[Rfam]
Rfam assigns this 75-nucleotide sequence from Anaerosacchariphilus polymeriproducens to the family "c-di-GMP-I riboswitch aptamer". Pairs were carried over by alignment from the consensus structure, which is taken from published work. GEMM was predicted in a large-scale screen for bacterial structured RNA regulatory elements. Genes associated with GEMM are involved in a diverse array of functions, including chemotaxis regulation, signal transduction, secretion and chitin. Lineage of the source: Bacteria > Bacillota > Lachnospirales > Lachnospiraceae > Anaerosacchariphilus.
RNA sequence: UAUACGAAAAGGCAAACUUACCGAAAGAUAAGGACGCAAAGCUAUAGGGCCUGAAAAUGGCAGCCAGUUAUCGAA
Numbered sequence: 001u002a003u004a005c006g007a008a009a010a011g012g013c014a015a016a017c018u019u020a021c022c023g024a025a026a027g028a029u030a031a032g033g034a035c036g037c038a039a040a041g042c043u044a045u046a047g048g049g050c051c052u053g054a055a056a057a058u059g060g061c062a063g064c065c066a067g068u069u070a071u072c073g074a075a
Base pairs, nucleotide, nucleotide: 012037013036017032018031019030020029022027040069041068042067043066047065048064049061050060051059